Bacteroidete tryptophan peptide leader RNA: a 122-nucleotide RNA from Aquaticitalea lipolytica.
Its family is annotated with S-adenosylmethionine metabolic process and regulation of gene expression in the Gene Ontology.
The family's consensus secondary structure is taken from published work.
RNA sequence: GACAAACAUUAAAAACAAAAAUGAACACAAUUUUAAAUCAUACUUGGUGGUGGAACUUUCGAAACUCAAUUUCGUGAAGUAACCCUUUUGUAUAUUUAAAAAUCAACAUAUAAAGGCUUGUC
Number, nucleotide and partner (000 for none) at each position: 001g000002a000003c000004a000005a000006a000007c000008a000009u000010u000011a000012a000013a000014a000015a000016c000017a000018a000019a000020a000021a000022u000023g000024a000025a000026c000027a000028c000029a000030a000031u000032u000033u000034u000035a000036a097037a096038u000039c000040a093041u092042a091043c090044u000045u000046g000047g000048u000049g086050g085051u000052g083053g000054a000055a080056c079057u078058u077059u076060c074061g000062a072063a071064a070065c000066u000067c000068a000069a000070u064071u063072u062073c000074g060075u000076g059077a058078a057079g056080u055081a000082a000083c052084c000085c050086u049087u000088u000089u000090g043091u042092a041093u040094a000095u000096u037097u036098a000099a000100a000101a000102a000103u000104c000105a000106a000107c000108a000109u000110a000111u000112a000113a000114a000115g000116g000117c000118u000119u000120g000121u000122c000
It scores 64 bits against the family's covariance model. The family's RNA type in Rfam is cis-regulatory leader.